[Rfam]
RNA sequence: AGCACAAACUCGAAGUAAAGUAGUUUAGUAAGGUCAGAUGAUCCUCCUUAUCUUCUCUACUUCGAGUUUGUGCCC
Number, nucleotide and partner (000 for none) at each position: 001a000002g073003c072004a071005c070006a069007a068008a067009c066010u000011c064012g063013a062014a061015g060016u059017a058018a000019a056020g055021u000022a053023g052024u000025u050026u000027a048028g047029u000030a045031a000032g043033g042034u041035c040036a000037g000038a000039u000040g035041a034042u033043c032044c000045u030046c000047c028048u027049u000050a025051u000052c023053u022054u000055c020056u019057c000058u017059a016060c015061u014062u013063c012064g011065a000066g009067u008068u007069u006070g005071u004072g003073c002074c000075c000

Rfam assigns this 75-nucleotide RNA from Haemonchus placei to the family "mir-5928 microRNA precursor family".
A search with the family's covariance model found it, with a score of 73 bits.